[Rfam]
RNA: Small nucleolar RNA R12
RNA sequence: AUGAAAGAUGACGAAAAAAAUCAUUCGGAUUCCCUUUGAUUUCCCUCCGGGAAAGAUGUGAUCAUAUAACCAGCUACUUCUGAUUCAU
Numbered sequence: 001a002u003g004a005a006a007g008a009u010g011a012c013g014a015a016a017a018a019a020a021u022c023a024u025u026c027g028g029a030u031u032c033c034c035u036u037u038g039a040u041u042u043c044c045c046u047c048c049g050g051g052a053a054a055g056a057u058g059u060g061a062u063c064a065u066a067u068a069a070c071c072a073g074c075u076a077c078u079u080c081u082g083a084u085u086c087a088u
Stems, first nucleotide, its partner, number of pairs: 001088005